Rfam assigns this 111-nucleotide sequence from Rossellomorea aquimaris to the family "RNA Staph. aureus E (RoxS)".
Rfam classes the family as a small RNA.
It was shown to be regulated by the presence of nitric oxide (NO). In Bacillus subtilis it controls expression of genes with functions related to oxidative stress and oxidation-reduction reactions and it was renamed RoxS (for related to oxidative stress).
The organism belongs to Rossellomorea, within Bacteria.
The family's consensus secondary structure is taken from published work.
For this family Rfam cites "A search for small noncoding RNAs in Staphylococcus aureus reveals a conserved sequence motif for regulation" (Geissmann et al., Nucleic Acids Res, 2009).
RNA sequence: GUGAAGUUGAUCACAAGCAAACAUAUACCCCCUUUGUUUGACCGUGAAAAAUUUCUCCCAUCCCCUUUGUUCGUAUAGAAAAACCGAUGUUGGAAACAACAUCGGUUUUUC
Numbered sequence: 001g002u003g004a005a006g007u008u009g010a011u012c013a014c015a016a017g018c019a020a021a022c023a024u025a026u027a028c029c030c031c032c033u034u035u036g037u038u039u040g041a042c043c044g045u046g047a048a049a050a051a052u053u054u055c056u057c058c059c060a061u062c063c064c065c066u067u068u069g070u071u072c073g074u075a076u077a078g079a080a081a082a083a084c085c086g087a088u089g090u091u092g093g094a095a096a097c098a099a100c101a102u103c104g105g106u107u108u109u110u111c
Base pairs, nucleotide, nucleotide: 003055004054005053006052007051008050011047012046013045014044018040019039020038021037022036023035071077081108082107083106084105085104086103087102088101089100090099091098